This 99-nucleotide sequence from Lentibacter algarum belongs to the Rfam family "Methylobacterium-1 RNA".
It is annotated as a small RNA.
The family's consensus secondary structure is taken from published work.
A search with the family's covariance model found it, with a score of 50 bits.
RNA sequence: AAGAUGGAAACGGUGCAUAAACAUUAUUCAUUGGAUGAAUUAACCAAGAUUCAGACAGUCGAAACAUUAGUCAGUCAGUGUUCGAUUGUUCCCGCAGUU
Numbered sequence: 001a002a003g004a005u006g007g008a009a010a011c012g013g014u015g016c017a018u019a020a021a022c023a024u025u026a027u028u029c030a031u032u033g034g035a036u037g038a039a040u041u042a043a044c045c046a047a048g049a050u051u052c053a054g055a056c057a058g059u060c061g062a063a064a065c066a067u068u069a070g071u072c073a074g075u076c077a078g079u080g081u082u083c084g085a086u087u088g089u090u091c092c093c094g095c096a097g098u099u
Stems, first nucleotide, its partner, number of pairs: 004031005010024001012022001037052005054090010065080004